[Rfam]
RNA sequence: UCGGGCAGUUGUCAGCGGACUGCUGUAAGCCUAGUUUGGGCCGGUAAUAGGAUGAUGAAUCCAUGUGGGGCUGGGAUCACGUGUGCUGGUGGUUACUUAGGUAUACCGCCCAUUAGAAGCUUGGUGUGGACAUUCUGUCUUGGGCGUAGGCCCGGGGCAAGAGGCCCUUGAAUAACUGUCUGCUACAGGCCAGCAAUGGAUCAGUAGAAAUGAUGGUAGCACUGGGCAGUCUGGUGGAUCACGGGAAUUAGUUUGGACUCUAGCACAUGCCAGCCUUGGGUGGAGACUACCAUCCGCU
Numbered sequence: 001u002c003g004g005g006c007a008g009u010u011g012u013c014a015g016c017g018g019a020c021u022g023c024u025g026u027a028a029g030c031c032u033a034g035u036u037u038g039g040g041c042c043g044g045u046a047a048u049a050g051g052a053u054g055a056u057g058a059a060u061c062c063a064u065g066u067g068g069g070g071c072u073g074g075g076a077u078c079a080c081g082u083g084u085g086c087u088g089g090u091g092g093u094u095a096c097u098u099a100g101g102u103a104u105a106c107c108g109c110c111c112a113u114u115a116g117a118a119g120c121u122u123g124g125u126g127u128g129g130a131c132a133u134u135c136u137g138u139c140u141u142g143g144g145c146g147u148a149g150g151c152c153c154g155g156g157g158c159a160a161g162a163g164g165c166c167c168u169u170g171a172a173u174a175a176c177u178g179u180c181u182g183c184u185a186c187a188g189g190c191c192a193g194c195a196a197u198g199g200a201u202c203a204g205u206a207g208a209a210a211u212g213a214u215g216g217u218a219g220c221a222c223u224g225g226g227c228a229g230u231c232u233g234g235u236g237g238a239u240c241a242c243g244g245g246a247a248u249u250a251g252u253u254u255g256g257a258c259u260c261u262a263g264c265a266c267a268u269g270c271c272a273g274c275c276u277u278g279g280g281u282g283g284a285g286a287c288u289a290c291c292a293u294c295c296g297c298u
Stems, first nucleotide, its partner, number of pairs: 001044003004024007029041003050295005056289002060286002064282003067277007075270001080269008091259004096255001099252001106244003110237002113234005119227009128167002131164001133162002136159010168174001175217006181209001183207003190199003
RNA: Metazoan signal recognition particle RNA